RNA sequence: AUUCGCUUGGUGCAGGUCGGGAACUGAUUCGGCGAUUUGAUUGCCAGAUGGCUCGACAUGACUGGUUGUUGUGGAAAAAGAAAAGGAAGGAAACAGGAAAAAAAACAAAGAAUAGCGAAUUGGAUCCCGCCUUGCAUCAACUGAA
Numbered sequence: 001a002u003u004c005g006c007u008u009g010g011u012g013c014a015g016g017u018c019g020g021g022a023a024c025u026g027a028u029u030c031g032g033c034g035a036u037u038u039g040a041u042u043g044c045c046a047g048a049u050g051g052c053u054c055g056a057c058a059u060g061a062c063u064g065g066u067u068g069u070u071g072u073g074g075a076a077a078a079a080g081a082a083a084a085g086g087a088a089g090g091a092a093a094c095a096g097g098a099a100a101a102a103a104a105a106c107a108a109a110g111a112a113u114a115g116c117g118a119a120u121u122g123g124a125u126c127c128c129g130c131c132u133u134g135c136a137u138c139a140a141c142u143g144a145a
Stems, first nucleotide, its partner, number of pairs: 002145003007140010018129005024123008
Rfam assigns this 145-nucleotide RNA sequence from Populus trichocarpa to the family "MIR168 microRNA precursor family". NCBI's taxonomy places the organism under Eukaryota, Streptophytina, eudicotyledons, fabids, Populus. The literature on the family includes a 2009 paper in New Phytol by Jagadeeswaran et al., "Cloning and characterization of small RNAs from Medicago truncatula reveals four novel legume-specific microRNA families".